[Rfam]
The record is a 163-nucleotide RNA sequence from Prolemur simus, which matches "U1 spliceosomal RNA" in Rfam. Clan: U1 clan. The family's consensus secondary structure is taken from published work. Lineage of the source: Eukaryota > Craniata > Tetrapoda > Amniota > Prolemur. A reference for the family is Zwieb (1997), "The uRNA database", Nucleic Acids Res. The match comes from Rfam's covariance-model search (124 bits).

RNA sequence: AUACUUACCUGGCAGGGGUGAUGCCAUGAUCACCAGGGUGAUUUUCCCAGGGUGAGGCUUAUCCAUUGCACUCCGGAUGUGCUGCCCCACUGCGAUUUCCCCAAGUGUGGGAAACUGGACUGCAUAAUUUGUGGUAGUGGGGGACUGCCUUUGCACUCUCCCA
Numbered sequence: 001a002u003a004c005u006u007a008c009c010u011g012g013c014a015g016g017g018g019u020g021a022u023g024c025c026a027u028g029a030u031c032a033c034c035a036g037g038g039u040g041a042u043u044u045u046c047c048c049a050g051g052g053u054g055a056g057g058c059u060u061a062u063c064c065a066u067u068g069c070a071c072u073c074c075g076g077a078u079g080u081g082c083u084g085c086c087c088c089a090c091u092g093c094g095a096u097u098u099c100c101c102c103a104a105g106u107g108u109g110g111g112a113a114a115c116u117g118g119a120c121u122g123c124a125u126a127a128u129u130u131g132u133g134g135u136a137g138u139g140g141g142g143g144a145c146u147g148c149c150u151u152u153g154c155a156c157u158c159u160c161c162c163a
Stems, first nucleotide, its partner, number of pairs: 012123004016048003020044002023042001025040003049091002051088002054086001056083003060079005093118001095116001096114003100110002139162006146155003